Background:
This 70-nucleotide RNA sequence from Bifidobacterium choloepi belongs to the Rfam family "Transposase-2 RNA". Lineage of the source: Bacteria > Bacillati > Bifidobacteriales > Bifidobacteriaceae > Bifidobacterium.
RNA sequence: GAAACGCGAACCAAGCAGCCCGGAGGGGCGUGAGCCUUGGAGCCUUCCCGCCGCAAGGUGAGGGAGUACA
Number, nucleotide and partner (000 for none) at each position: 001g000002a000003a000004a000005c000006g000007c000008g000009a000010a000011c040012c039013a038014a037015g036016c000017a000018g029019c028020c027021c026022g000023g000024a000025g000026g021027g020028g019029c018030g000031u000032g000033a000034g000035c000036c015037u014038u013039g012040g011041a000042g000043c000044c066045u065046u064047c063048c062049c000050g059051c058052c057053g000054c000055a000056a000057g052058g051059u050060g000061a000062g048063g047064g046065a045066g044067u000068a000069c000070a000